[Rfam]
Shown here is a 74-nucleotide sequence from Rhodoferax sp. OV413, a member of the family "tRNA". The base pairs follow the family's consensus structure, which is taken from published work. Rfam links the family to the GO term triplet codon-amino acid adaptor activity. From the family's description: Transfer RNA (tRNA) molecules are approximately 80 nucleotides in length. It is annotated as a transfer RNA. The organism belongs to Rhodoferax, within Bacteria.
Nucleotides: 074
Stems, first nucleotide, its partner, number of pairs: 001073007010026004028044005050066005
Number, partner (000 for none) and nucleotide at each position: 001073c002072u003071a004070c005069c006068c007067g008000u009000a010026g011025c012024u013023c014000a015000g016000u017000u018000g019000g020000a021000u022000a023013g024012a025011g026010c027000a028044u029043c030042a031041g032040c033000c034000u035000u036000c037000u038000a039000a040032g041031c042030u043029g044028a045000g046000g047000g048000u049000c050066a051065c052064a053063g054062g055000u056000u057000c058000g059000a060000u061000c062054c063053c064052u065051g066050u067007c068006g069005g070004g071003u072002a073001g074000a